[Rfam]
RNA: Glycine riboswitch aptamer
Organism: Amycolatopsis cihanbeyliensis
RNA sequence: CGAGCCGGAGCGGGAGAGCUCCCGCCGCGUCACCAGCGUGGGCGGGACACCGAAGGAGCAAGCUCCCCGCCAAUCUCUCAGGUACAGCUACCGCUCAGGCGAG
Numbered sequence: 001c002g003a004g005c006c007g008g009a010g011c012g013g014g015a016g017a018g019c020u021c022c023c024g025c026c027g028c029g030u031c032a033c034c035a036g037c038g039u040g041g042g043c044g045g046g047a048c049a050c051c052g053a054a055g056g057a058g059c060a061a062g063c064u065c066c067c068c069g070c071c072a073a074u075c076u077c078u079c080a081g082g083u084a085c086a087g088c089u090a091c092c093g094c095u096c097a098g099g100c101g102a103g
Stems, first nucleotide, its partner, number of pairs: 006098001008096006020047007049083003052079002056077003062070002